[Rfam]
RNA sequence: UACGAUCUUCGGGGUAGGGUGCAAGUCCCAACCGGCGGUAUAGUCCGCGACCCGCAGCGAUGCGGUGGAAUCGGUGACUUUCUUAAACAGAAAGAAUUCCGAUACCGACAGUAUAGUCUGGAUGAGAGAAGAUAGUG
Numbered sequence: 001u002a003c004g005a006u007c008u009u010c011g012g013g014g015u016a017g018g019g020u021g022c023a024a025g026u027c028c029c030a031a032c033c034g035g036c037g038g039u040a041u042a043g044u045c046c047g048c049g050a051c052c053c054g055c056a057g058c059g060a061u062g063c064g065g066u067g068g069a070a071u072c073g074g075u076g077a078c079u080u081u082c083u084u085a086a087a088c089a090g091a092a093a094g095a096a097u098u099c100c101g102a103u104a105c106c107g108a109c110a111g112u113a114u115a116g117u118c119u120g121g122a123u124g125a126g127a128g129a130a131g132a133u134a135g136u137g
Stems, first nucleotide, its partner, number of pairs: 003135001005133006017029003031117002033107002035048004043105002052065002070103005109120003
FMN riboswitch aptamer (RFN element): a 137-nucleotide RNA from Mediterraneibacter torques. The family's consensus secondary structure is taken from published work. NCBI's taxonomy places the organism under Bacteria, Bacillati, Bacillota, Lachnospirales, Mediterraneibacter torques.